[Rfam]
RNA sequence: UACCACCUACACGACGUAAGCCCUGCCUCUCAAACGUCCUUGCGGUUCCAAGCCCGCGCCAGCUGGAGUAAGUGAAUUCAUGAUUGG
Numbered sequence: 001u002a003c004c005a006c007c008u009a010c011a012c013g014a015c016g017u018a019a020g021c022c023c024u025g026c027c028u029c030u031c032a033a034a035c036g037u038c039c040u041u042g043c044g045g046u047u048c049c050a051a052g053c054c055c056g057c058g059c060c061a062g063c064u065g066g067a068g069u070a071a072g073u074g075a076a077u078u079c080a081u082g083a084u085u086g087g
Base pairs, nucleotide, nucleotide: 035066039062040061041058042057043056044055045054047052

A member of the RNA family "BsrC" from Metabacillus indicus, 87 nucleotides long. The match comes from Rfam's covariance-model search (55 bits). Rfam classes the family as a small RNA. Taxonomically the source falls in Metabacillus (Bacteria, Bacillota, Bacilli, Caryophanales). About the family: The 301 nucleotide sequence from Kouji Nakamura has been trimmed to a highly conserved ~85 nucleotide long core to form this family.